[Rfam]
RNA sequence: GGGUGCUCUGGAUCUUUCUGUCCUGAGCCUCAGCAAAAGGCAGAAAGAGAAAGGCCCCGGAUCGAUGUUAAUCAACCCGAGGCCACUCUAAUGCUUACACAACAUAAAGGUAGCCUCUUCCACGCCGAAAGGCAAGCUAAGGAGGCCAGGAUG
Numbered sequence: 001g002g003g004u005g006c007u008c009u010g011g012a013u014c015u016u017u018c019u020g021u022c023c024u025g026a027g028c029c030u031c032a033g034c035a036a037a038a039g040g041c042a043g044a045a046a047g048a049g050a051a052a053g054g055c056c057c058c059g060g061a062u063c064g065a066u067g068u069u070a071a072u073c074a075a076c077c078c079g080a081g082g083c084c085a086c087u088c089u090a091a092u093g094c095u096u097a098c099a100c101a102a103c104a105u106a107a108a109g110g111u112a113g114c115c116u117c118u119u120c121c122a123c124g125c126c127g128a129a130a131g132g133c134a135a136g137c138u139a140a141g142g143a144g145g146c147c148a149g150g151a152u153g
Stems, first nucleotide, its partner, number of pairs: 001058003005055002008053002013048010024037001027034002059078002062071001064069001079117005085111003089107001091105003121145001125141001
A member of the RNA family "sok antitoxin (CssrC)" from Candidatus Sodalis pierantonii, 153 nucleotides long. NCBI's taxonomy places the organism under Bacteria, Pseudomonadota, Gammaproteobacteria, Enterobacterales, Candidatus Sodalis pierantonii. Gene Ontology term of the family: mRNA binding.